RNA sequence: AGAGUAGGCGUAGACGGUUGCAGAGCAGUUGAUGAGACUGCUUUGAGGAAAGUCCGGGCUCCCGAAAGACCGAACUUGCUGGAUAACGUCCAGUGCGAGCGAUCGCGAGGAUAGUGCCACAGAAACAUACCGCCAAAACAAUCCAAAAUGUCAAAUUUUGAGUUGCAUGGUAAGGGUGCAAAGGUGCGGUAAGAGCGCACCAGCAACAUCGAGAGGUGUUGGCUCGGUAAACCCCGGUUGGGAGCAAGGCCAGAGGAACCACGGUUGGUCUUUUACCAGUUCCGUGAACAUAGAGCCGCUAGAGGCGUUUGGUAACAAGCGUCCCAGAUAGAUAACCGUCCUUGAAAGUAGUGCAUAACUCUUUUAAGAACAGAACCCGGCUUAUGUGCUGCUCUCUCC
Numbered sequence: 001a002g003a004g005u006a007g008g009c010g011u012a013g014a015c016g017g018u019u020g021c022a023g024a025g026c027a028g029u030u031g032a033u034g035a036g037a038c039u040g041c042u043u044u045g046a047g048g049a050a051a052g053u054c055c056g057g058g059c060u061c062c063c064g065a066a067a068g069a070c071c072g073a074a075c076u077u078g079c080u081g082g083a084u085a086a087c088g089u090c091c092a093g094u095g096c097g098a099g100c101g102a103u104c105g106c107g108a109g110g111a112u113a114g115u116g117c118c119a120c121a122g123a124a125a126c127a128u129a130c131c132g133c134c135a136a137a138a139c140a141a142u143c144c145a146a147a148a149u150g151u152c153a154a155a156u157u158u159u160g161a162g163u164u165g166c167a168u169g170g171u172a173a174g175g176g177u178g179c180a181a182a183g184g185u186g187c188g189g190u191a192a193g194a195g196c197g198c199a200c201c202a203g204c205a206a207c208a209u210c211g212a213g214a215g216g217u218g219u220u221g222g223c224u225c226g227g228u229a230a231a232c233c234c235c236g237g238u239u240g241g242g243a244g245c246a247a248g249g250c251c252a253g254a255g256g257a258a259c260c261a262c263g264g265u266u267g268g269u270c271u272u273u274u275a276c277c278a279g280u281u282c283c284g285u286g287a288a289c290a291u292a293g294a295g296c297c298g299c300u301a302g303a304g305g306c307g308u309u310u311g312g313u314a315a316c317a318a319g320c321g322u323c324c325c326a327g328a329u330a331g332a333u334a335a336c337c338g339u340c341c342u343u344g345a346a347a348g349u350a351g352u353g354c355a356u357a358a359c360u361c362u363u364u365u366a367a368g369a370a371c372a373g374a375a376c377c378c379g380g381c382u383u384a385u386g387u388g389c390u391g392c393u394c395u396c397u398c399c
Stems, first nucleotide, its partner, number of pairs: 001395006008389005013340007021045009050383003054380005059244004068272002073239003077236002079093005094108001095106004109234002114232002116228003130175002132171003136168001139165003183201006203223001204221007248297003255283005263277003267273001304323008
Bacterial RNase P class A: a 399-nucleotide RNA from Richelia sinica. NCBI's taxonomy places the organism under Bacteria, Bacillati, Nostocales, Nostocaceae, Richelia sinica. It scores 250 bits against the family's covariance model. Rfam's curators write: Ribonuclease P (RNase P) is a ubiquitous endoribonuclease, found in archaea, bacteria and eukarya as well as chloroplasts and mitochondria. Its best characterised activity is the generation of mature 5'-ends of tRNAs by cleaving the 5'-leader elements of precursor-tRNAs.